The record is a 166-nucleotide sequence from Sarcina ventriculi, which matches "M-box riboswitch aptamer (ykoK leader)" in Rfam. M-box riboswitch, also know as ykoK leader is described as a metaloregulatory RNA that sense divalent metals and function as a genetic control element of genes related to divalent metal transport in bacteria. It was first reported upstream of the B.subtilis ykoK gene and genes with related functions in other bacteria. Lineage of the source: Bacteria > Bacillota > Clostridia > Eubacteriales > Sarcina.

[Rfam]
RNA sequence: AAAUAAAUAUUUAAGGGGAGGCUCCUAUAUUAGAUAAAUGCUACUGCUCAGAAACAUCGAAAGAUGCCAAUGGGUCAACAGGUAUUGCCGAGUUAAGGCUUUACUUAACGUAGCUGAGUUAAGCUCAAAGCUAUAUAGUGCUAAAACCAUGGUACAAGGUUUUAUU
Numbered sequence: 001a002a003a004u005a006a007a008u009a010u011u012u013a014a015g016g017g018g019a020g021g022c023u024c025c026u027a028u029a030u031u032a033g034a035u036a037a038a039u040g041c042u043a044c045u046g047c048u049c050a051g052a053a054a055c056a057u058c059g060a061a062a063g064a065u066g067c068c069a070a071u072g073g074g075u076c077a078a079c080a081g082g083u084a085u086u087g088c089c090g091a092g093u094u095a096a097g098g099c100u101u102u103a104c105u106u107a108a109c110g111u112a113g114c115u116g117a118g119u120u121a122a123g124c125u126c127a128a129a130g131c132u133a134u135a136u137a138g139u140g141c142u143a144a145a146a147c148c149a150u151g152g153u154a155c156a157a158g159g160u161u162u163u164a165u166u
Base pairs, nucleotide, nucleotide: 005162006161007160008159010157011152012151015148016147020142021141022140025138026137027136028135029134030133032132033131040114041113042112043111044110046075047074048073049072050071055066056065057064058063081105082104083103084102087099088098089097116126117125118124